[Rfam]
RNA sequence: UACACGCAUAACUGUAAGUUGCUUUGGAUAAAAGAGUCUGCUAAAUAGCAUAUA
Numbered sequence: 001u002a003c004a005c006g007c008a009u010a011a012c013u014g015u016a017a018g019u020u021g022c023u024u025u026g027g028a029u030a031a032a033a034g035a036g037u038c039u040g041c042u043a044a045a046u047a048g049c050a051u052a053u054a
Stems, first nucleotide, its partner, number of pairs: 013043001014041003020036001022034004

UnaL2 LINE 3' element: a 54-nucleotide RNA from Hucho hucho.
The family's consensus secondary structure is taken from published work.
It scores 61 bits against the family's covariance model.
NCBI's taxonomy places the organism under Eukaryota, Deuterostomia, Neopterygii, Salmoniformes, Hucho.
About the family: The eel long interspersed element (LINE) UnaL2 and its partner short interspersed element (SINE) share a conserved 3' tail containing a stem-loop that is critical for their retrotransposition. Presumably, the first step of retrotransposition is the recognition of their 3' tails by UnaL2-encoded reverse transcriptase. The solution structure of a 17-nucleotide RNA derived from the 3' tail of UnaL2 was determined by NMR.
The literature on the family includes a 2004 paper in RNA by Baba et al., "Solution structure of an RNA stem-loop derived from the 3' conserved region of eel LINE UnaL2".
By type it is a cis-regulatory element.